About this RNA:
The record is a 68-nucleotide RNA from Enterobacteriaceae bacterium RIT714, which matches "Salmonella enterica sRNA STnc40" in Rfam.

[Rfam]
RNA sequence: AGCGUGUCAUGGCCGUCUGAGCUAAACACGUAUUCAAUCAAAAAGGCGCAGAUCUCUGCGCCUUUUUU
Numbered sequence: 001a002g003c004g005u006g007u008c009a010u011g012g013c014c015g016u017c018u019g020a021g022c023u024a025a026a027c028a029c030g031u032a033u034u035c036a037a038u039c040a041a042a043a044a045g046g047c048g049c050a051g052a053u054c055u056c057u058g059c060g061c062c063u064u065u066u067u068u
Stems, first nucleotide, its partner, number of pairs: 004017001006013002041066011
Lineage of the source: Bacteria > Pseudomonadati > Pseudomonadota > Gammaproteobacteria > Enterobacteriaceae.